[Rfam]
Record summary
A member of the RNA family "T-box leader" from Blautia faecicola, 225 nucleotides long.
RNA sequence: AAAAAAGCGACGAACGGAAAGAGUAUCUGAAAGAAGAACCACAGAGAGGGACGGCCACUGGCUGAAAGCGGUCCCGGGGAAUCAUCAGAGAAGUGCAUCUGGGAGCUGAUACGGCGAAAAGAAGUAGCCGGAUCCGCAGGCAGGCGUUAAGGGCAGAAAGUGGAAGAUGGACAUAACAGGUGCAUCUUCAAAAAGAGUGGAACCACGGAUGACUUCGUCUCUUAC
Numbered sequence: 001a002a003a004a005a006a007g008c009g010a011c012g013a014a015c016g017g018a019a020a021g022a023g024u025a026u027c028u029g030a031a032a033g034a035a036g037a038a039c040c041a042c043a044g045a046g047a048g049g050g051a052c053g054g055c056c057a058c059u060g061g062c063u064g065a066a067a068g069c070g071g072u073c074c075c076g077g078g079g080a081a082u083c084a085u086c087a088g089a090g091a092a093g094u095g096c097a098u099c100u101g102g103g104a105g106c107u108g109a110u111a112c113g114g115c116g117a118a119a120a121g122a123a124g125u126a127g128c129c130g131g132a133u134c135c136g137c138a139g140g141c142a143g144g145c146g147u148u149a150a151g152g153g154c155a156g157a158a159a160g161u162g163g164a165a166g167a168u169g170g171a172c173a174u175a176a177c178a179g180g181u182g183c184a185u186c187u188u189c190a191a192a193a194a195g196a197g198u199g200g201a202a203c204c205a206c207g208g209a210u211g212a213c214u215u216c217g218u219c220u221c222u223u224a225c
Stems, first nucleotide, its partner, number of pairs: 007106002015101004026089005039078002050073003054069002109133002112130004135146003163189007194222004205218005
Dot-bracket structure: ......((......((((.......(((((........((.........(((.((............)).)))...))......)))))........))))...))..((.((((...........)))).)).(((......)))................(((((((.............)))))))....((((.......(((((....)))))))))...

The source organism's lineage runs through Bacteria, Bacillati, Bacillota, Lachnospiraceae and Blautia.